Source information: The record is a 77-nucleotide RNA from Hymenochirus boettgeri, which matches "mir-16 microRNA precursor family" in Rfam. It scores 39 bits against the family's covariance model. The organism belongs to Hymenochirus, within Eukaryota. For this family Rfam cites "Structural Basis for pri-miRNA Recognition by Drosha" (Jin et al., Mol Cell, 2020).
Nucleotides: 077
Base pairs, nucleotide, nucleotide: 001077002076003075005073006072007071011067012066013065014064015063016062017061018060022056023055024054025053026052027051028050029049
Number, partner (000 for none) and nucleotide at each position: 001077u002076u003075a004000g005073c006072a007071c008000u009000g010000c011067a012066g013065c014064a015063g016062u017061a018060c019000a020000u021000a022056u023055u024054u025053a026052a027051u028050g029049c030000a031000a032000u033000g034000g035000u036000a037000c038000u039000a040000a041000g042000u043000a044000c045000c046000a047000u048000u049029g050028c051027a052026u053025u054024a055023a056022a057000u058000a059000u060018g061017u062016a063015c064014u065013g066012c067011u068000g069000c070000a071007g072006u073005g074000c075003u076002a077001g